[Rfam]
RNA sequence: GCCCGUGAUGAUUUGAUCCAUGUUUGAGGUUUAGUGGAACCAAGACCCUGUUUUGCGGGGAGGAUCUACUUGGGGAAGCUGCAUUUCACAUGAAAUUAAUGGAUCAUACCACAAUGGU
Numbered sequence: 001g002c003c004c005g006u007g008a009u010g011a012u013u014u015g016a017u018c019c020a021u022g023u024u025u026g027a028g029g030u031u032u033a034g035u036g037g038a039a040c041c042a043a044g045a046c047c048c049u050g051u052u053u054u055g056c057g058g059g060g061a062g063g064a065u066c067u068a069c070u071u072g073g074g075g076a077a078g079c080u081g082c083a084u085u086u087c088a089c090a091u092g093a094a095a096u097u098a099a100u101g102g103a104u105c106a107u108a109c110c111a112c113a114a115u116g117g118u
Base pairs, nucleotide, nucleotide: 001118002117003116046060047059048058049057050056
The family of this 118-nucleotide RNA sequence from Protea cynaroides is "Small nucleolar RNA Z278". From the family's description: snoZ278 is a C/D box small nucleolar RNA. Its methylation guide targets have not been reported. The match comes from Rfam's covariance-model search (50 bits). NCBI's taxonomy places the organism under Eukaryota, Viridiplantae, Streptophyta, Tracheophyta, Protea.